The family of this 55-nucleotide RNA sequence from Salmo trutta is "UnaL2 LINE 3' element". The eel long interspersed element (LINE) UnaL2 and its partner short interspersed element (SINE) share a conserved 3' tail containing a stem-loop that is critical for their retrotransposition. Presumably, the first step of retrotransposition is the recognition of their 3' tails by UnaL2-encoded reverse transcriptase. The solution structure of a 17-nucleotide RNA derived from the 3' tail of UnaL2 was determined by NMR. The base pairs follow the family's consensus structure, which is taken from published work. Taxonomically the source falls in Salmo (Eukaryota, Eumetazoa, Chordata, Actinopterygii). By type it is a cis-regulatory element. The literature on the family includes a 2004 paper in RNA by Baba et al., "Solution structure of an RNA stem-loop derived from the 3' conserved region of eel LINE UnaL2".

[Rfam]
RNA sequence: UGAAUGCACUAAUUGUAAGUUGCUCUGGAUAAGAGCAUUUGCUAAAUGUCAAAUA
Numbered sequence: 001u002g003a004a005u006g007c008a009c010u011a012a013u014u015g016u017a018a019g020u021u022g023c024u025c026u027g028g029a030u031a032a033g034a035g036c037a038u039u040u041g042c043u044a045a046a047u048g049u050c051a052a053a054u055a
Stems, first nucleotide, its partner, number of pairs: 014044001015042003021037006